[Rfam]
RNA sequence: AGCCAGUGAUGACAAAUCAUAUUUUCUGACACCUUCUAUGAGAGCUGAACUUCAGCUUGUGAUUCAGAAUUUUUUCUGAGGCUC
Numbered sequence: 001a002g003c004c005a006g007u008g009a010u011g012a013c014a015a016a017u018c019a020u021a022u023u024u025u026c027u028g029a030c031a032c033c034u035u036c037u038a039u040g041a042g043a044g045c046u047g048a049a050c051u052u053c054a055g056c057u058u059g060u061g062a063u064u065c066a067g068a069a070u071u072u073u074u075u076c077u078g079a080g081g082c083u084c
Base pairs, nucleotide, nucleotide: 001083002082003081004080044056045055046054047053048052